[Rfam]
RNA sequence: GUCUGAAGAGUUGGUAUAGCUACAGAGAAACCAGCUUCCUUCAGAGAGC
Numbered sequence: 001g002u003c004u005g006a007a008g009a010g011u012u013g014g015u016a017u018a019g020c021u022a023c024a025g026a027g028a029a030a031c032c033a034g035c036u037u038c039c040u041u042c043a044g045a046g047a048g049c
Stems, first nucleotide, its partner, number of pairs: 002045005009036007017022001
RNA: MAT2A 3'UTR stem loop C